[Rfam]
RNA sequence: CUGGUUCCGGUUCACGCCCGAGCCCGGCGCGCAUCCCGCGCGGCCGGCGUACGGCGACCCGGCGACC
Numbered sequence: 001c002u003g004g005u006u007c008c009g010g011u012u013c014a015c016g017c018c019c020g021a022g023c024c025c026g027g028c029g030c031g032c033a034u035c036c037c038g039c040g041c042g043g044c045c046g047g048c049g050u051a052c053g054g055c056g057a058c059c060c061g062g063c064g065a066c067c
Stems, first nucleotide, its partner, number of pairs: 003067003007062004015056004019049002
The record is a 67-nucleotide RNA sequence from Micromonospora olivasterospora, which matches "L31-Actinobacteria ribosomal protein leader" in Rfam. The match comes from Rfam's covariance-model search (42 bits). The organism belongs to Micromonospora, within Bacteria. By type it is a cis-regulatory leader.